[Rfam]
RNA sequence: GAUCACAGUCAGUUUUGCAGGUUUGCAUCCCAGCGUACUAAAAUUGCUGUGCAAAUCCAUGCAAAACUGACUGUGGUG
Number, nucleotide and partner (000 for none) at each position: 001g000002a000003u076004c075005a074006c073007a072008g071009u070010c069011a068012g067013u066014u065015u064016u063017g062018c061019a060020g058021g057022u055023u054024u053025g052026c051027a050028u049029c000030c000031c000032a048033g047034c046035g000036u000037a000038c000039u000040a000041a000042a000043a000044u000045u000046g034047c033048u032049g028050u027051g026052c025053a024054a023055a022056u000057c021058c020059a000060u019061g018062c017063a016064a015065a014066a013067c012068u011069g010070a009071c008072u007073g006074u005075g004076g003077u000078g000
mir-19 microRNA precursor family: a 78-nucleotide RNA from Chloropsis hardwickii.
Its family is annotated with miRNA-mediated post-transcriptional gene silencing and RISC complex in the Gene Ontology.
Pairs were carried over by alignment from the consensus structure, which was predicted with RNAalifold.
It scores 83 bits against the family's covariance model.
The source organism's lineage runs through Eukaryota, Teleostomi, Archelosauria, Corvoidea and Chloropsis.
The family is grouped with related families in Rfam's "mir-19 clan".